The family of this 84-nucleotide RNA sequence from Xenopus tropicalis is "Small nucleolar RNA MBII-202". Its family is annotated with RNA processing and nucleolus in the Gene Ontology. The base pairs follow the family's consensus structure, which was predicted with PFOLD.

RNA sequence: AUGACAAUUUCUCCGGAAUCUCUGCAUCUUUGUGAUGAUUUACAGUUUGAACCCUUUUCCAGCUGAUGACCAUAGUUCUUGUGA
Numbered sequence: 001a002u003g004a005c006a007a008u009u010u011c012u013c014c015g016g017a018a019u020c021u022c023u024g025c026a027u028c029u030u031u032g033u034g035a036u037g038a039u040u041u042a043c044a045g046u047u048u049g050a051a052c053c054c055u056u057u058u059c060c061a062g063c064u065g066a067u068g069a070c071c072a073u074a075g076u077u078c079u080u081g082u083g084a
Stems, first nucleotide, its partner, number of pairs: 002084001004082003